[Rfam]
RNA sequence: ACAGUCUGAAAAUCCCUUGGGGUCUGCUGUCGCCCCUGGUGCGAUAACUGUGCCGACAACAGAGGGAGCAUUAAACUCAUUGCCCACGGUAAAAUGUGGGGAGUGAGACCCAUGUUCCUAUAAUC
Numbered sequence: 001a002c003a004g005u006c007u008g009a010a011a012a013u014c015c016c017u018u019g020g021g022g023u024c025u026g027c028u029g030u031c032g033c034c035c036c037u038g039g040u041g042c043g044a045u046a047a048c049u050g051u052g053c054c055g056a057c058a059a060c061a062g063a064g065g066g067a068g069c070a071u072u073a074a075a076c077u078c079a080u081u082g083c084c085c086a087c088g089g090u091a092a093a094a095u096g097u098g099g100g101g102a103g104u105g106a107g108a109c110c111c112a113u114g115u116u117c118c119u120a121u122a123a124u125c
Stems, first nucleotide, its partner, number of pairs: 006050001008048001010045001014039001019034002022031001065118001067116005077106005085098003
Shown here is a 125-nucleotide RNA from Bucco capensis, a member of the family "Small nucleolar RNA ACA64".
For this family Rfam cites "A computational screen for mammalian pseudouridylation guide H/ACA RNAs" (Schattner et al., RNA, 2006).
Rfam links the family to the GO terms RNA processing and nucleolus.